[Rfam]
RNA: TPP riboswitch aptamer (THI element)
RNA sequence: CAAAAACCUAAGGGGUGGCCAAGGCCUGAGAUGCUGCGAGAUCAAGAAGAUCUUUUGCAGCAAACCCUUGAACCUGAUCCGGUUAAUACCGGCGUAGGAAUAGGUAGGCAUGCCAAA
Numbered sequence: 001c002a003a004a005a006a007c008c009u010a011a012g013g014g015g016u017g018g019c020c021a022a023g024g025c026c027u028g029a030g031a032u033g034c035u036g037c038g039a040g041a042u043c044a045a046g047a048a049g050a051u052c053u054u055u056u057g058c059a060g061c062a063a064a065c066c067c068u069u070g071a072a073c074c075u076g077a078u079c080c081g082g083u084u085a086a087u088a089c090c091g092g093c094g095u096a097g098g099a100a101u102a103g104g105u106a107g108g109c110a111u112g113c114c115a116a117a
Base pairs, nucleotide, nucleotide: 006105007104008103009102010101011068012067013066014065016062017026018025019024033061034060035059036058037057038056039055040054041053073098074097075096076095079092080091081090082089